[Rfam]
RNA sequence: GGUUCCUUUAAUCCAGUCCCGUGAGGCUGGGAAGGAGCGGCAUAGCCGAGCUGCACCCUUUUGGCGGGUUGCGGGUUUGGUGGGCUCCUCCCAUCCGUUUGGGAGGAGCUUUUUUACA
Numbered sequence: 001g002g003u004u005c006c007u008u009u010a011a012u013c014c015a016g017u018c019c020c021g022u023g024a025g026g027c028u029g030g031g032a033a034g035g036a037g038c039g040g041c042a043u044a045g046c047c048g049a050g051c052u053g054c055a056c057c058c059u060u061u062u063g064g065c066g067g068g069u070u071g072c073g074g075g076u077u078u079g080g081u082g083g084g085c086u087c088c089u090c091c092c093a094u095c096c097g098u099u100u101g102g103g104a105g106g107a108g109c110u111u112u113u114u115u116a117c118a
Base pairs, nucleotide, nucleotide: 003037004036005035006034007033008032009031013030014029015028016027017026018025045077047075050072051071053069054068056066058064080113082111083110084109085108086107087106088105089104090103091102092101093100

Shown here is a 118-nucleotide RNA sequence from Polycladomyces abyssicola, a member of the family "PyrR binding site". For this family Rfam cites "Molecular recognition of pyr mRNA by the Bacillus subtilis attenuation regulatory protein PyrR" (Bonner et al., Nucleic Acids Res, 2001). It scores 61 bits against the family's covariance model. From the family's description: This family represents the PyrR binding site and terminator structure. This RNA structure is found upstream of a variety of genes involved in pyrimidine biosynthesis and transport. The alignment also includes a portion of the antiterminator structure. The source organism's lineage runs through Bacteria, Bacillati, Bacilli, Thermoactinomycetaceae and Polycladomyces.